[Rfam]
RNA sequence: UCUAGAACUCGAGAUAUAGGCUAAACACUGAACAAUGUCUGGGCUGCAGGACAGAUUCGGACUUCUCCGUUGUUGCUAUAACUUGGACUUGAAAACGAUCUUUUUAGAUCUUAGACUCCACAUAAAAGUUAUAGGCCUAUGUCUUACCAAAUCUAUC
Numbered sequence: 001u002c003u004a005g006a007a008c009u010c011g012a013g014a015u016a017u018a019g020g021c022u023a024a025a026c027a028c029u030g031a032a033c034a035a036u037g038u039c040u041g042g043g044c045u046g047c048a049g050g051a052c053a054g055a056u057u058c059g060g061a062c063u064u065c066u067c068c069g070u071u072g073u074u075g076c077u078a079u080a081a082c083u084u085g086g087a088c089u090u091g092a093a094a095a096c097g098a099u100c101u102u103u104u105u106a107g108a109u110c111u112u113a114g115a116c117u118c119c120a121c122a123u124a125a126a127a128g129u130u131a132u133a134g135g136c137c138u139a140u141g142u143c144u145u146a147c148c149a150a151a152u153c154u155a156u157c
Stems, first nucleotide, its partner, number of pairs: 003155004009146001011145010021134003025130001027129003035123003041119003045115001048112004054105002059100002063097001072088003
This 157-nucleotide RNA from Populus tomentosa belongs to the Rfam family "MIR2912 microRNA precursor family".
Rfam 15.1 lists 15,051 matches to the family in 15 species.